[Rfam]
RNA sequence: CUCUUAUCCCGAGUUGGCGGAGGGACAGGCCCGAUGAAACCCAGCAACCUGCUAUUAUUAAACUUGACUCAUCUGAAUGGUUUGGAUGUUAUAACAAGUGGAAUUUUAGCGAUGGUGCUAACCUGAUGCAAGGCUAAGAAACCCUUGAACGAUAAGAG
Number, nucleotide and partner (000 for none) at each position: 001c158002u157003c156004u155005u154006a153007u152008c151009c000010c000011g000012a000013g042014u000015u000016g041017g040018c000019g000020g000021a000022g032023g031024g030025a000026c128027a127028g000029g124030c024031c023032c022033g000034a000035u000036g000037a000038a000039a000040c017041c016042c013043a119044g118045c117046a116047a000048c115049c114050u111051g110052c109053u108054a000055u000056u000057a000058u000059u000060a000061a000062a000063c000064u000065u000066g000067a000068c000069u000070c000071a000072u000073c000074u000075g000076a000077a000078u000079g000080g000081u000082u000083u000084g000085g000086a000087u000088g000089u000090u000091a000092u000093a000094a000095c000096a000097a000098g000099u000100g000101g000102a000103a000104u000105u000106u000107u000108a053109g052110c051111g050112a000113u000114g049115g048116u046117g045118c044119u043120a000121a000122c000123c000124u029125g000126a000127u027128g026129c147130a146131a145132g144133g143134c000135u000136a000137a000138g000139a000140a000141a000142c000143c133144c132145u131146u130147g129148a000149a000150c000151g008152a007153u006154a005155a004156g003157a002158g001

Annotation
SAM riboswitch aptamer (S box leader): a 158-nucleotide RNA sequence from Bacillus sp. MUM 13. A search with the family's covariance model found it, with a score of 64 bits. About the family: The SAM riboswitch is found upstream of a number of genes which code for proteins involved in methionine or cysteine biosynthesis in Gram-positive bacteria.